Rfam assigns this 75-nucleotide RNA from Crocodylus porosus to the family "Mammalian CPEB3 ribozyme". Taxonomically the source falls in Crocodylus (Eukaryota, Opisthokonta, Metazoa, Longirostres). The mammalian CPEB3 ribozyme is a self cleaving RNA located in the second intron of the CPEB3 gene which belongs to a family of genes regulating messenger RNA polyadenylation. The base pairs follow the family's consensus structure, which is taken from published work.
RNA sequence: ACAAGUUUUUGAGGCCACAGCAGAAGCACUCAUGGUGUGGUCCAGUCAGAUUGCAGCAAAUCUGUGCGUUCUGUU
Numbered sequence: 001a002c003a004a005g006u007u008u009u010u011g012a013g014g015c016c017a018c019a020g021c022a023g024a025a026g027c028a029c030u031c032a033u034g035g036u037g038u039g040g041u042c043c044a045g046u047c048a049g050a051u052u053g054c055a056g057c058a059a060a061u062c063u064g065u066g067c068g069u070u071c072u073g074u075u
Stems, first nucleotide, its partner, number of pairs: 011043001013042004019075007026038003047064006